[Rfam]
RNA sequence: GGGCUUAUGAUGAUAUUUCAAAUAAUCUUAGCGGAUUUCAGUGAGUUUAUCAAUGAUCUGACUGUUACACACACUGAAGCCU
Numbered sequence: 001g002g003g004c005u006u007a008u009g010a011u012g013a014u015a016u017u018u019c020a021a022a023u024a025a026u027c028u029u030a031g032c033g034g035a036u037u038u039c040a041g042u043g044a045g046u047u048u049a050u051c052a053a054u055g056a057u058c059u060g061a062c063u064g065u066u067a068c069a070c071a072c073a074c075u076g077a078a079g080c081c082u
Stems, first nucleotide, its partner, number of pairs: 001082005